Description:
Shown here is a 239-nucleotide sequence from Brachypodium distachyon, a member of the family "RNase MRP". By type it is a ribozyme. The base pairs follow the family's consensus structure, which is taken from published work. It scores 84 bits against the family's covariance model. The family is grouped with related families in Rfam's "RNaseP clan".

RNA sequence: ACGCCACAGGAUGAAGUGAGCGGGCCUAACCAGCCCUGGAAAGUCCCCGGGCCCUCAUGCGCAGCGAUGCGCCCACGGAAACGUGGACGGCCCACGAGCUGGCUCUCCCUGCUUCGGUGGGGGGCAGAGACAAGUGUGGAGCCCAAUCACAGGGAGCCAGCUCUGGUCAAUUGGCUAAUCUCACAGUUAUUCACUUGGUCCUCUUGGACUAACAGAACGGGGCUUACACUCCCGUGGCA
Dot-bracket structure: ..(((((.(((..((((((..((((.......))))....[[[.[[[[...........((((....)))).(((((....)))))..(((......((((((...((((.........(((.......((....))....)))......)))).))))))....)))......................)))))).((((....)))).........]]]]]]]....))).))))).
Numbered sequence: 001a002c003g004c005c006a007c008a009g010g011a012u013g014a015a016g017u018g019a020g021c022g023g024g025c026c027u028a029a030c031c032a033g034c035c036c037u038g039g040a041a042a043g044u045c046c047c048c049g050g051g052c053c054c055u056c057a058u059g060c061g062c063a064g065c066g067a068u069g070c071g072c073c074c075a076c077g078g079a080a081a082c083g084u085g086g087a088c089g090g091c092c093c094a095c096g097a098g099c100u101g102g103c104u105c106u107c108c109c110u111g112c113u114u115c116g117g118u119g120g121g122g123g124g125c126a127g128a129g130a131c132a133a134g135u136g137u138g139g140a141g142c143c144c145a146a147u148c149a150c151a152g153g154g155a156g157c158c159a160g161c162u163c164u165g166g167u168c169a170a171u172u173g174g175c176u177a178a179u180c181u182c183a184c185a186g187u188u189a190u191u192c193a194c195u196u197g198g199u200c201c202u203c204u205u206g207g208a209c210u211a212a213c214a215g216a217a218c219g220g221g222g223c224u225u226a227c228a229c230u231c232c233c234g235u236g237g238c239a
Stems, first nucleotide, its partner, number of pairs: 003238005009232003014196006022036004041225003045222004060071004073086005089168003098161006107154004120144003130137002198209004